[Rfam]
RNA: TPP riboswitch aptamer (THI element)
Organism: Microbacterium mitrae
RNA sequence: GCUGGUGACUCGGGGUGUCCCGCCAGGGACUGAGAUCACACCCGCCGAACCUGUCGAGAUCAUGCUCGCGAAGGAAUGUCAUAUGAGCGCUGU
Numbered sequence: 001g002c003u004g005g006u007g008a009c010u011c012g013g014g015g016u017g018u019c020c021c022g023c024c025a026g027g028g029a030c031u032g033a034g035a036u037c038a039c040a041c042c043c044g045c046c047g048a049a050c051c052u053g054u055c056g057a058g059a060u061c062a063u064g065c066u067c068g069c070g071a072a073g074g075a076a077u078g079u080c081a082u083a084u085g086a087g088c089g090c091u092g093u
Stems, first nucleotide, its partner, number of pairs: 006081004011044004016038001017030005050074003055068004